[Rfam]
RNA sequence: CUCACACAUCAACCUAAGAAUCGCUGCUUCUUGUAGCACUGGUUUAAACAGAGGUGCACACGGCAAGUGGAUAUUGGCAACUUUGGCUGUGGUUGUGCCCCUCAAAGUAAAUUUGGAGGUUCUACAUUC
Numbered sequence: 001c002u003c004a005c006a007c008a009u010c011a012a013c014c015u016a017a018g019a020a021u022c023g024c025u026g027c028u029u030c031u032u033g034u035a036g037c038a039c040u041g042g043u044u045u046a047a048a049c050a051g052a053g054g055u056g057c058a059c060a061c062g063g064c065a066a067g068u069g070g071a072u073a074u075u076g077g078c079a080a081c082u083u084u085g086g087c088u089g090u091g092g093u094u095g096u097g098c099c100c101c102u103c104a105a106a107g108u109a110a111a112u113u114u115g116g117a118g119g120u121u122c123u124a125c126a127u128u129c
Base pairs, nucleotide, nucleotide: 005056006055007054009052019044020043021042022041023040025038026037027036028035069122070121071120072119074117075116081107082106083105084104085103086098087097
Source information:
Small nucleolar RNA SNORA68: a 129-nucleotide RNA from Sciurus vulgaris. The literature on the family includes a 1997 paper in Genes Dev by Ganot et al., "The family of box ACA small nucleolar RNAs is defined by an evolutionarily conserved secondary structure and ubiquitous sequence elements essential for RNA accumulation". Its family is annotated with RNA processing and nucleolus in the Gene Ontology. Rfam classes the family as an H/ACA-box small nucleolar RNA. A search with the family's covariance model found it, with a score of 88 bits. NCBI's taxonomy places the organism under Eukaryota, Eumetazoa, Teleostomi, Sciurini, Sciurus. About the family: U68 is a member of the H/ACA class of small nucleolar RNAs (snoRNAs) which act as guides in the the modification of uridines to pseudouridines.